The family of this 224-nucleotide RNA from Paenibacillus sp. FSL H7-0357 is "Group II catalytic intron D1-D4-6".
Lineage of the source: Bacteria > Bacilli > Caryophanales > Paenibacillaceae > Paenibacillus.
The literature on the family includes a 2001 paper in Trends Genet by Bonen and Vogel, "The ins and outs of group II introns".
Rfam 15.1 lists 1,617 matches to the family in 661 species.
It scores 153 bits against the family's covariance model.
[Rfam]
RNA sequence: GAAAUCCUGCUUGGAAAGGCUAAAGCCAAGCCAUCAAUAGCGAGUCUUGGACGGCUGGAAGUAAUUUCAGACGUUAAGCGUAGACAGCCAGAUAGUAGGCCUGAAAGUGAUAGAGCCUCGAAAAGAGUAAACCGGAGAGGUCGACGUUGUCGAAAGUACGGAAGACCAUACUCAUUCAUGCGUUAAAGGCAAGUAGGGAUGAGCUCUCCCGGGGUCGGAGAGCC
Numbered sequence: 001g002a003a004a005u006c007c008u009g010c011u012u013g014g015a016a017a018g019g020c021u022a023a024a025g026c027c028a029a030g031c032c033a034u035c036a037a038u039a040g041c042g043a044g045u046c047u048u049g050g051a052c053g054g055c056u057g058g059a060a061g062u063a064a065u066u067u068c069a070g071a072c073g074u075u076a077a078g079c080g081u082a083g084a085c086a087g088c089c090a091g092a093u094a095g096u097a098g099g100c101c102u103g104a105a106a107g108u109g110a111u112a113g114a115g116c117c118u119c120g121a122a123a124a125g126a127g128u129a130a131a132c133c134g135g136a137g138a139g140g141u142c143g144a145c146g147u148u149g150u151c152g153a154a155a156g157u158a159c160g161g162a163a164g165a166c167c168a169u170a171c172u173c174a175u176u177c178a179u180g181c182g183u184u185a186a187a188g189g190c191a192a193g194u195a196g197g198g199a200u201g202a203g204c205u206c207u208c209c210c211g212g213g214g215u216c217g218g219a220g221a222g223c224c
Stems, first nucleotide, its partner, number of pairs: 011037004018032002021029001025190002040088002044085004048080002050075004055070006113216001115215006134209006140166003145160003171203007179195003
Dot-bracket structure: ..........((((...((.(...[[..).)).))))..((..((((((((((.((((((....)))))).))))...)).)))).))........................(.((((((.............(((((((((..(((..........)))...)))....(((((((.(((.......]]..))).))))))))))))))))))))........